Notes:
Rfam assigns this 74-nucleotide sequence from Ophiophagus hannah to the family "mir-129 microRNA precursor family".

RNA sequence: GCGAAUCUUUUUGCGGUCUGGGCUUGCUGUAUAUAAGUACCUAGCCGGGAAGCCCUUACCCCAAAAAGCAUUCG
Numbered sequence: 001g002c003g004a005a006u007c008u009u010u011u012u013g014c015g016g017u018c019u020g021g022g023c024u025u026g027c028u029g030u031a032u033a034u035a036a037g038u039a040c041c042u043a044g045c046c047g048g049g050a051a052g053c054c055c056u057u058a059c060c061c062c063a064a065a066a067a068g069c070a071u072u073c074g
Stems, first nucleotide, its partner, number of pairs: 007068007015060003020055004025050001027048002
Overview
Its family is annotated with miRNA-mediated post-transcriptional gene silencing, RISC complex and synapse in the Gene Ontology. The base pairs follow the family's consensus structure, which was predicted with RNAalifold. The source organism's lineage runs through Eukaryota, Craniata, Bifurcata, Elapinae and Ophiophagus.